Small nucleolar RNA SNORD30: a 71-nucleotide RNA sequence from Clupea harengus. The pairing is the family consensus, mapped onto this sequence. Rfam classes the family as a C/D-box small nucleolar RNA. Rfam links the family to the GO terms nucleolus and RNA processing. For this family Rfam cites "A mammalian gene with introns instead of exons generating stable RNA products" (Tycowski et al., Nature, 1996). Taxonomically the source falls in Clupea (Eukaryota, Chordata, Actinopterygii, Clupeoidei).
RNA sequence: AGUUAUGAUGAUUUAUCCUUUGGAAUCUCGUUCGUCUGAAAUCCUGUUGAGAGACUUUGAAACUGAUGCUU
Numbered sequence: 001a002g003u004u005a006u007g008a009u010g011a012u013u014u015a016u017c018c019u020u021u022g023g024a025a026u027c028u029c030g031u032u033c034g035u036c037u038g039a040a041a042u043c044c045u046g047u048u049g050a051g052a053g054a055c056u057u058u059g060a061a062a063c064u065g066a067u068g069c070u071u
Stems, first nucleotide, its partner, number of pairs: 026054004033049002036046001